[Rfam]
RNA: Group II catalytic intron D1-D4-6
Organism: Exilibacterium tricleocarpae
RNA sequence: AAAGUACCGCAUCAAAAGUGCCGACUCAGCACAUUGAUUACCGAGUCUUGGGUCAUUAAAGGUAACGAUAAUGAUCAAGCGUAGAUAGGGUAGUUUGCAGGCCAAAAGCGUAAGCCUAAGCGAUUAAGCCCCGAAAAAUCCAUUAUCGAGAUGGUCGAUAGUAUCGCGACGCUAGAAGACAACAUCAUCACAAGCAAGAAUGAGCAGUUUGUGUUGGCAUCUCCGGGGUCGUAGCGCU
Numbered sequence: 001a002a003a004g005u006a007c008c009g010c011a012u013c014a015a016a017a018g019u020g021c022c023g024a025c026u027c028a029g030c031a032c033a034u035u036g037a038u039u040a041c042c043g044a045g046u047c048u049u050g051g052g053u054c055a056u057u058a059a060a061g062g063u064a065a066c067g068a069u070a071a072u073g074a075u076c077a078a079g080c081g082u083a084g085a086u087a088g089g090g091u092a093g094u095u096u097g098c099a100g101g102c103c104a105a106a107a108g109c110g111u112a113a114g115c116c117u118a119a120g121c122g123a124u125u126a127a128g129c130c131c132c133g134a135a136a137a138a139u140c141c142a143u144u145a146u147c148g149a150g151a152u153g154g155u156c157g158a159u160a161g162u163a164u165c166g167c168g169a170c171g172c173u174a175g176a177a178g179a180c181a182a183c184a185u186c187a188u189c190a191c192a193a194g195c196a197a198g199a200a201u202g203a204g205c206a207g208u209u210u211g212u213g214u215u216g217g218c219a220u221c222u223c224c225g226g227g228g229u230c231g232u233a234g235c236g237c238u
Stems, first nucleotide, its partner, number of pairs: 012037004019031003025204002041089002045086004049081002051076008061066001128229006148223006154180003159174004185217003189213007